Rfam assigns this 92-nucleotide sequence from Prunus armeniaca to the family "MIR6288 microRNA precursor family".
[Rfam]
RNA sequence: CCAAAACUAGCCACUUGUCAUUUUCCAAUUGGUUCUUAAUGUCCUAGAAUUUUAUAAGAACCAAUUAGAAAAUAACAAGUUGCUAGUUUAGG
Numbered sequence: 001c002c003a004a005a006a007c008u009a010g011c012c013a014c015u016u017g018u019c020a021u022u023u024u025c026c027a028a029u030u031g032g033u034u035c036u037u038a039a040u041g042u043c044c045u046a047g048a049a050u051u052u053u054a055u056a057a058g059a060a061c062c063a064a065u066u067a068g069a070a071a072a073u074a075a076c077a078a079g080u081u082g083c084u085a086g087u088u089u090a091g092g
Base pairs, nucleotide, nucleotide: 002091004089005088006087007086008085009084010083011082013080014079015078016077017076018075020073021072022071023070024069025068027066028065029064030063031062032061033060034059035058036057037056038055
Taxonomically the source falls in Prunus (Eukaryota, Streptophyta, Embryophyta, Amygdaloideae). The family's consensus secondary structure was predicted with RNAalifold. Gene Ontology terms of the family: RISC complex and miRNA-mediated post-transcriptional gene silencing.